[Rfam]
RNA sequence: AAAUGUAGUAGACUUAAAGUAUACGUGCGUGAUCAAAGAGUAUACUAAGUACACUACGUUUAU
Numbered sequence: 001a002a003a004u005g006u007a008g009u010a011g012a013c014u015u016a017a018a019g020u021a022u023a024c025g026u027g028c029g030u031g032a033u034c035a036a037a038g039a040g041u042a043u044a045c046u047a048a049g050u051a052c053a054c055u056a057c058g059u060u061u062a063u
Stems, first nucleotide, its partner, number of pairs: 001061009012050003018046007
RNA: mir-728 microRNA precursor family